The family of this 117-nucleotide RNA sequence from Piaya cayana is "Small nucleolar RNA SNORA61".
[Rfam]
RNA sequence: UCCCUCCAAAUCCCUUUCCCAUUGGAUCUGAAUACCGAUCUGGUGGUCGAAAAAGGAGGAAAAGUAAAACUUCGACUGGUCAGGGCCUCUGCUGGUUGCAGUCCAGCUCAGAGAGGG
Numbered sequence: 001u002c003c004c005u006c007c008a009a010a011u012c013c014c015u016u017u018c019c020c021a022u023u024g025g026a027u028c029u030g031a032a033u034a035c036c037g038a039u040c041u042g043g044u045g046g047u048c049g050a051a052a053a054a055g056g057a058g059g060a061a062a063a064g065u066a067a068a069a070c071u072u073c074g075a076c077u078g079g080u081c082a083g084g085g086c087c088u089c090u091g092c093u094g095g096u097u098g099c100a101g102u103c104c105a106g107c108u109c110a111g112a113g114a115g116g117g
Base pairs, nucleotide, nucleotide: 003059004058005057006056007055019046020045021044022043023042025040026039027038028037076106077105078104079103081101085096086095

It scores 80 bits against the family's covariance model.
NCBI's taxonomy places the organism under Eukaryota, Chordata, Vertebrata, Otidimorphae, Piaya.
Pairs were carried over by alignment from the consensus structure, which was predicted with PFOLD.
About the family: ACA61 is a member of the H/ACA class of snoRNA that guide the sites of modification of uridines to pseudouridines.
It is annotated as an H/ACA-box small nucleolar RNA.